[Rfam]
Rfam assigns this 102-nucleotide RNA from Acanthocheilonema viteae to the family "SL1 RNA". The family has 28 seed sequences and 1,095 matches in Rfam 15.1. It scores 91 bits against the family's covariance model. The family's RNA type in Rfam is non-coding RNA gene. On this family, see Dassanayake et al., Gene 2001: "Trans-spliced leader RNA, 5S-rRNA genes and novel variant orphan spliced-leader of the lymphatic filarial nematode Wuchereria bancrofti, and a sensitive polymerase chain reaction based detection assay". Its Rfam clan is "SL clan".

RNA sequence: GGUUUAAUUACCCAAGUUUGAGGUAAUUGAAUUCGGCUUAGAGUUUCGGCUGCUGUGGCUUGAAGUAAAACUUUGGAACGUUCUCCUCCUAGGCGGGACAAC
Numbered sequence: 001g002g003u004u005u006a007a008u009u010a011c012c013c014a015a016g017u018u019u020g021a022g023g024u025a026a027u028u029g030a031a032u033u034c035g036g037c038u039u040a041g042a043g044u045u046u047c048g049g050c051u052g053c054u055g056u057g058g059c060u061u062g063a064a065g066u067a068a069a070a071c072u073u074u075g076g077a078a079c080g081u082u083c084u085c086c087u088c089c090u091a092g093g094c095g096g097g098a099c100a101a102c
Stems, first nucleotide, its partner, number of pairs: 003031010032064003036059003080099005086093001